[Rfam]
RNA sequence: CCCGUGGCAAGACGGAAAGACCCCGUGAACCUUUACUAUAGCUUUACACUGAACGUUGAGUUCGUCUGUGUAGGAUAGGUGGGAGGCUAUGAAGUGCCGGCGCCAGCUGGCAUGGAGCCAUCCUUGAAAUACCACCCUGACGUGCUUGACGUUCUAACCUGGGCCCGUAAUCCGGGUCGGGGACCGUGUAUGGUGGGUAGUUUGACUGGGGCGGUCUCCUCCUAAAGAGUAACGGAGGAGCUCGAAGGUACGCUCAGCGCGGUCGGACAUCGCGCACUGUGUGCAAAGGCAUAAGCGUGCUUGACUGCAAGAUCGACGGAUCAAGCAGGUACGAAAGUAGGACUUAGUGAUCCGGUGGUUCUGUAUGGAAGGGCCAUCGCUCAACGGAUAAAAGGUACUCCGGGGAUAACAGGCUGAUACCGCCCAAGAGUUCAUAUCGACGGCGGUGUUUGGCACCUCGAUGUCGGCUCAUCACAUCCUGGGGCUGUAGUCGGUCCCAAGGGUAUGGCUGUUCGCCAUUUAAAGUGGUACGCGAGCUGGGUUCAGAACGUCGUGAGACAGUUCGGUCCCUAUCUGCCAUGGGCGUU
Numbered sequence: 001c002c003c004g005u006g007g008c009a010a011g012a013c014g015g016a017a018a019g020a021c022c023c024c025g026u027g028a029a030c031c032u033u034u035a036c037u038a039u040a041g042c043u044u045u046a047c048a049c050u051g052a053a054c055g056u057u058g059a060g061u062u063c064g065u066c067u068g069u070g071u072a073g074g075a076u077a078g079g080u081g082g083g084a085g086g087c088u089a090u091g092a093a094g095u096g097c098c099g100g101c102g103c104c105a106g107c108u109g110g111c112a113u114g115g116a117g118c119c120a121u122c123c124u125u126g127a128a129a130u131a132c133c134a135c136c137c138u139g140a141c142g143u144g145c146u147u148g149a150c151g152u153u154c155u156a157a158c159c160u161g162g163g164c165c166c167g168u169a170a171u172c173c174g175g176g177u178c179g180g181g182g183a184c185c186g187u188g189u190a191u192g193g194u195g196g197g198u199a200g201u202u203u204g205a206c207u208g209g210g211g212c213g214g215u216c217u218c219c220u221c222c223u224a225a226a227g228a229g230u231a232a233c234g235g236a237g238g239a240g241c242u243c244g245a246a247g248g249u250a251c252g253c254u255c256a257g258c259g260c261g262g263u264c265g266g267a268c269a270u271c272g273c274g275c276a277c278u279g280u281g282u283g284c285a286a287a288g289g290c291a292u293a294a295g296c297g298u299g300c301u302u303g304a305c306u307g308c309a310a311g312a313u314c315g316a317c318g319g320a321u322c323a324a325g326c327a328g329g330u331a332c333g334a335a336a337g338u339a340g341g342a343c344u345u346a347g348u349g350a351u352c353c354g355g356u357g358g359u360u361c362u363g364u365a366u367g368g369a370a371g372g373g374c375c376a377u378c379g380c381u382c383a384a385c386g387g388a389u390a391a392a393a394g395g396u397a398c399u400c401c402g403g404g405g406a407u408a409a410c411a412g413g414c415u416g417a418u419a420c421c422g423c424c425c426a427a428g429a430g431u432u433c434a435u436a437u438c439g440a441c442g443g444c445g446g447u448g449u450u451u452g453g454c455a456c457c458u459c460g461a462u463g464u465c466g467g468c469u470c471a472u473c474a475c476a477u478c479c480u481g482g483g484g485c486u487g488u489a490g491u492c493g494g495u496c497c498c499a500a501g502g503g504u505a506u507g508g509c510u511g512u513u514c515g516c517c518a519u520u521u522a523a524a525g526u527g528g529u530a531c532g533c534g535a536g537c538u539g540g541g542u543u544c545a546g547a548a549c550g551u552c553g554u555g556a557g558a559c560a561g562u563u564c565g566g567u568c569c570c571u572a573u574c575u576g577c578c579a580u581g582g583g584c585g586u587u
Stems, first nucleotide, its partner, number of pairs: 001583008010575003014570002022404004027400002029396005035201004042193002045190004051154011063142004068137001078136005085119003094113008158181003162178006204216004217239006240385001242342002248300006255279001257275006281290002305328004311322003330339003353379007361372002413454003417451001418448007428438002465540001466538004470532001471529005478503002481498006505519005546564004550559003
About this RNA:
The record is a 587-nucleotide part of an RNA from Pseudoxanthomonas suwonensis, which matches "Bacterial large subunit ribosomal RNA" in Rfam. NCBI's taxonomy places the organism under Bacteria, Gammaproteobacteria, Lysobacterales, Lysobacteraceae, Pseudoxanthomonas suwonensis. Pairs were carried over by alignment from the consensus structure, which is taken from published work.